[Rfam]
RNA: Mason-Pfizer monkey virus packaging signal
RNA sequence: UGGCACCCAACGUGGCCUGGAUACUGGGGAUAACGUGAGGGACACGACGAAAGAAGAAGGGGUGCGCACCCGAUUAAACAAUAGUUCGGAGACGUCGCUGUAGCCUGCUGUGACCGAGCCGACAGGUAUGCUGGUCGUCAAUCAUGGGGCAAGAAUUAAGUCAGCAUCAAAAGUAUGUGAUGCAGUUAAGAGAAGCGUUACAGGCAAGAGGAGUAAAGGUUACAACUGAGGAUUUAUUUCAUUUUUUUGAUUUCAUAAAAGACAUCUGCCCAU
Number, nucleotide and partner (000 for none) at each position: 001u000002g000003g000004c000005a000006c029007c028008c027009a000010a000011c000012g024013u023014g022015g000016c000017c000018u000019g000020g000021a000022u014023a013024c012025u000026g000027g008028g007029g006030a000031u000032a000033a000034c046035g045036u044037g000038a000039g000040g000041g000042a000043c000044a036045c035046g034047a000048c000049g000050a000051a000052a000053g000054a000055a000056g000057a000058a000059g000060g000061g000062g000063u000064g000065c000066g000067c000068a000069c000070c000071c000072g000073a000074u000075u000076a000077a000078a000079c000080a000081a000082u000083a000084g000085u124086u122087c121088g000089g000090a000091g000092a000093c116094g115095u000096c112097g111098c110099u000100g108101u000102a000103g000104c000105c000106u000107g000108c100109u000110g098111u097112g096113a000114c000115c094116g093117a000118g000119c000120c000121g087122a086123c000124a085125g000126g000127u000128a000129u000130g000131c000132u152133g000134g150135u149136c000137g000138u147139c146140a145141a000142u000143c000144a000145u140146g139147g138148g000149g135150c134151a000152a132153g000154a000155a000156u000157u200158a199159a198160g196161u195162c000163a000164g000165c000166a000167u000168c000169a000170a000171a000172a000173g000174u000175a000176u000177g000178u000179g000180a000181u000182g000183c000184a000185g000186u000187u000188a000189a000190g000191a000192g000193a000194a000195g161196c160197g000198u159199u158200a157201c000202a000203g000204g000205c000206a000207a000208g248209a247210g246211g245212a244213g243214u000215a000216a000217a235218g234219g233220u232221u231222a000223c000224a000225a000226c000227u000228g000229a000230g000231g221232a220233u219234u218235u217236a000237u000238u000239u000240c000241a000242u000243u213244u212245u211246u210247u209248u208249g000250a000251u000252u000253u000254c000255a000256u000257a000258a273259a000260a000261g270262a000263c268264a000265u000266c000267u000268g263269c000270c261271c000272a000273u258